c-di-AMP riboswitch aptamer (ydaO/yuaA leader): a 157-nucleotide RNA sequence from Streptomyces alboflavus.
This family represents a conserved RNA structure found upstream of the ydaO and yuaA genes in Bacillus subtilis and related genes in other bacteria.
It scores 82 bits against the family's covariance model.
[Rfam]
RNA sequence: GCGCGGCCUCCGCCGAGUCCGACGUGUUCGGAGCCGGGGACCCACCAUGUUCUUUGGGGUGAAUCCGCUCCGUACGGCGUACGGAGCGGUAGGGCAGCCUUCCGAAGCACCCGCCCGAACCCGACAGCUAACCCGGUAGGCGGUCCACGGAAGGAGU
Number, nucleotide and partner (000 for none) at each position: 001g000002c000003g000004c000005g000006g000007c000008c000009u000010c000011c142012g141013c140014c139015g000016a000017g000018u032019c031020c030021g029022a028023c000024g000025u000026g000027u000028u022029c021030g020031g019032a018033g137034c136035c135036g134037g133038g132039g000040a000041c000042c000043c056044a055045c000046c000047a000048u000049g000050u000051u000052c000053u000054u000055u044056g043057g122058g121059g120060u000061g000062a000063a000064u000065c089066c088067g087068c086069u085070c084071c083072g082073u081074a080075c079076g000077g000078c000079g075080u074081a073082c072083g071084g070085a069086g068087c067088g066089g065090u000091a000092g116093g115094g114095c113096a000097g000098c000099c000100u000101u000102c000103c000104g000105a000106a000107g000108c000109a000110c000111c000112c000113g095114c094115c093116c092117g000118a000119a000120c059121c058122c057123g000124a000125c000126a000127g000128c000129u000130a000131a000132c038133c037134c036135g035136g034137u033138a000139g014140g013141c012142g011143g000144u000145c000146c000147a000148c000149g000150g000151a000152a000153g000154g000155a000156g000157u000